[Rfam]
RNA sequence: UGACCCUGUGCGGGAGAGUCCUCCGAGUGAGUUCGACGGAGGCGCCGAAGGAGCAAAUCCUCCCCGGAAUCUCUCAGGCAUACGUACCGCACGUGGUGA
Numbered sequence: 001u002g003a004c005c006c007u008g009u010g011c012g013g014g015a016g017a018g019u020c021c022u023c024c025g026a027g028u029g030a031g032u033u034c035g036a037c038g039g040a041g042g043c044g045c046c047g048a049a050g051g052a053g054c055a056a057a058u059c060c061u062c063c064c065c066g067g068a069a070u071c072u073c074u075c076a077g078g079c080a081u082a083c084g085u086a087c088c089g090c091a092c093g094u095g096g097u098g099a
Stems, first nucleotide, its partner, number of pairs: 007093007020042006044079003047075002051073003058066001
The record is a 99-nucleotide sequence from Streptomyces sp. ICC1, which matches "Glycine riboswitch aptamer" in Rfam. About the family: This family represents the bacterial glycine riboswitch. Clan: Glycine riboswitch clan.